RNA sequence: AAGCAGUGUAGCAUGCCCGUCAGGUGUUAAACUCUGAUUUACUUUUAUAUUUAUGUUGUUGGGAAAACGGGGUGUUACACUGGG
Number, nucleotide and partner (000 for none) at each position: 001a000002a000003g000004c082005a081006g080007u079008g078009u077010a076011g075012c074013a073014u072015g000016c071017c070018c069019g068020u067021c000022a000023g000024g000025u000026g000027u000028u000029a000030a000031a000032c000033u000034c000035u000036g000037a000038u000039u000040u000041a000042c000043u000044u000045u000046u000047a000048u000049a000050u000051u000052u000053a000054u000055g000056u000057u000058g000059u000060u000061g000062g000063g000064a000065a000066a000067a020068c019069g018070g017071g016072g014073u013074g012075u011076u010077a009078c008079a007080c006081u005082g004083g000084g000